[Rfam]
RNA sequence: UGGACAGAUUAUUGUAUUCACGGUGUGAAAUAGGGGAUUACACUGUUUUUAAAUGAAAAAUGAAUCAAUUAACAUAAUAGACUCCU
Numbered sequence: 001u002g003g004a005c006a007g008a009u010u011a012u013u014g015u016a017u018u019c020a021c022g023g024u025g026u027g028a029a030a031u032a033g034g035g036g037a038u039u040a041c042a043c044u045g046u047u048u049u050u051a052a053a054u055g056a057a058a059a060a061u062g063a064a065u066c067a068a069u070u071a072a073c074a075u076a077a078u079a080g081a082c083u084c085c086u
Stems, first nucleotide, its partner, number of pairs: 002085003009080007017072002020061001024055003027049007